[Rfam]
RNA sequence: AUUAAUCUUCAGGGCAGGGUGAAAUUCCCGACCGGCGGUAGAGUCCGCGAGCGGUGCGAAGCAUUGCUGAACCGGUUAGAUUCCGGUACCGACAGUACAGUCUGGAUGGAAGAAGAUGAGC
Dot-bracket structure: ..(.((((((......(((.......))).[[((((((....[[))))..(((...........)))...(((((.......)))))]])).(((....]]))).......)))))).)..
The family of this 121-nucleotide RNA from Butyrivibrio sp. CAG:318 is "FMN riboswitch aptamer (RFN element)".
About the family: The RFN element is a highly conserved domain that is found frequently in the 5'-untranslated regions of prokaryotic mRNAs that encode for flavin mononucleotide (FMN) biosynthesis and transport proteins.
The base pairs follow the family's consensus structure, which is taken from published work.
Rfam links the family to the GO term FMN binding.
Taxonomically the source falls in Butyrivibrio (Bacteria, Bacillota, Clostridia, Lachnospiraceae).